Source information
The record is a 210-nucleotide sequence from Paraburkholderia caffeinitolerans, which matches "Burkholderia sRNA Bp1_Cand738_SIPHT" in Rfam. It scores 173 bits against the family's covariance model. The source organism's lineage runs through Bacteria, Pseudomonadati, Pseudomonadota, Betaproteobacteria and Paraburkholderia. It is annotated as a small RNA.
Nucleotides: 210
Base pairs, nucleotide, nucleotide: 008027009026010025011024012023013022014021047113048112049111050110055074056073057072058071059070082094083093084092085091086090140178141177142176145173146172148170151169152168153167154166
Number, partner (000 for none) and nucleotide at each position: 001000c002000a003000a004000a005000c006000a007000g008027c009026c010025g011024g012023c013022g014021c015000a016000a017000a018000g019000a020000g021014g022013c023012g024011c025010c026009g027008g028000c029000g030000a031000a032000g033000a034000c035000a036000a037000c038000c039000a040000a041000u042000c043000u044000a045000g046000a047113c048112c049111g050110u051000g052000g053000a054000a055074a056073g057072c058071c059070g060000u061000g062000c063000a064000g065000g066000g067000a068000g069000u070059c071058g072057g073056c074055u075000a076000a077000a078000c079000g080000g081000c082094g083093a084092c085091g086090c087000g088000u089000u090086g091085c092084g093083u094082c095000u096000g097000a098000a099000g100000g101000a102000c103000c104000g105000g106000u107000a108000u109000g110050g111049u112048g113047g114000u115000u116000a117000g118000a119000a120000a121000u122000u123000g124000c125000a126000a127000g128000c129000c130000c131000u132000g133000c134000a135000a136000c137000c138000a139000g140178u141177g142176u143000g144000g145173a146172c147000g148170g149000a150000u151169u152168c153167u154166a155000g156000c157000a158000g159000g160000c161000u162000u163000u164000a165000a166154u167153a168152g169151a170148u171000g172146g173145u174000c175000a176142a177141c178140a179000c180000u181000a182000u183000a184000g185000a186000a187000u188000g189000u190000c191000a192000a193000a194000u195000c196000u197000a198000u199000a200000a201000c202000u203000a204000a205000u206000u207000g208000u209000a210000a